Rfam assigns this 107-nucleotide RNA from Solanum lycopersicum to the family "Small nucleolar RNA Z279/snoR105/snoR108". Taxonomically the source falls in Solanum subgen. Lycopersicon (Eukaryota, Streptophytina, Tracheophyta, Magnoliopsida). Pairs were carried over by alignment from the consensus structure, which was predicted with PFOLD. For this family Rfam cites "Experimental RNomics: identification of 140 candidates for small non-messenger RNAs in the plant Arabidopsis thaliana" (Marker et al., Curr Biol, 2002). This family includes the plant snoRNAs known as Z279, snoR105 and snoR108. The family is grouped with related families in Rfam's "snoU13 clan". The sequence is in the family's curated seed alignment.
RNA sequence: AGGAUAUGAUGAGUGGUCAAAUGCUCACAAUAAUUUUGUGAGAAGGAUGCCUAAGCUCAGCCUGGUUACGACAAUUUAGGCCUUCUCAAUUUUAUCAAUUUGAUCCU
Numbered sequence: 001a002g003g004a005u006a007u008g009a010u011g012a013g014u015g016g017u018c019a020a021a022u023g024c025u026c027a028c029a030a031u032a033a034u035u036u037u038g039u040g041a042g043a044a045g046g047a048u049g050c051c052u053a054a055g056c057u058c059a060g061c062c063u064g065g066u067u068a069c070g071a072c073a074a075u076u077u078a079g080g081c082c083u084u085c086u087c088a089a090u091u092u093u094a095u096c097a098a099u100u101u102g103a104u105c106c107u
Base pairs, nucleotide, nucleotide: 001107002106003105004104014098016096024042025041026040027039028038044086045085046084047083049081050080051079063078064077065075066074
The family has 20 seed sequences and 906 matches in Rfam 15.1.